[Rfam]
RNA: Group II catalytic intron D1-D4-2
Organism: Cysteiniphilum litorale
RNA sequence: GGGAGUAGGUCUCCCGAAGUCGGUAUAUAGCUACGGGCUUCAAACCACCUCAAGCUGCUGUAAUAAAGAAUUAUGGUAGUGAGCGUUGAGGAAAAGGCAUAAAUAUAUGUCAGGU
Numbered sequence: 001g002g003g004a005g006u007a008g009g010u011c012u013c014c015c016g017a018a019g020u021c022g023g024u025a026u027a028u029a030g031c032u033a034c035g036g037g038c039u040u041c042a043a044a045c046c047a048c049c050u051c052a053a054g055c056u057g058c059u060g061u062a063a064u065a066a067a068g069a070a071u072u073a074u075g076g077u078a079g080u081g082a083g084c085g086u087u088g089a090g091g092a093a094a095a096g097g098c099a100u101a102a103a104u105a106u107a108u109g110u111c112a113g114g115u
Base pairs, nucleotide, nucleotide: 001015002014003013004012005011016041017040018039019038020037021036023034024033025032046114048091049090050089051088052087053086054080055079057077058076059075061073062072063071064070096111097110098109099108100107101106
Dot-bracket structure: (((((.....)))))((((((.(((......))).))))))....(.((((((((.(((.((((.....)))).))).)).....))))))....((((((....))))))..).